[Rfam]
RNA: TPP riboswitch aptamer (THI element)
RNA sequence: CGAGAAAUGUAGGGGAGCCAGUAUUGCUGGCUGAGAUUGCGUCCUUUAGACGCUGACUCUUUGAACCUGAUCUGGAUGGUGCCAGCGGAGGGAACAUAUUAUGACAGAUU
Numbered sequence: 001c002g003a004g005a006a007a008u009g010u011a012g013g014g015g016a017g018c019c020a021g022u023a024u025u026g027c028u029g030g031c032u033g034a035g036a037u038u039g040c041g042u043c044c045u046u047u048a049g050a051c052g053c054u055g056a057c058u059c060u061u062u063g064a065a066c067c068u069g070a071u072c073u074g075g076a077u078g079g080u081g082c083c084a085g086c087g088g089a090g091g092g093a094a095c096a097u098a099u100u101a102u103g104a105c106a107g108a109u110u
Stems, first nucleotide, its partner, number of pairs: 007097004011060004016054001017031005039053004066091003072085004